[Rfam]
RNA: mir-203 microRNA precursor family
RNA sequence: GCCCGCCGGGUCUAGUGGUCCUAAACAUUUCACAAUUGCGCUACAGAACUGUUGAACUGUUAAGAACCACUGGACCCAGC
Dot-bracket structure: .............((((((.((.((((.((((....................)))).)))).)).)))))).........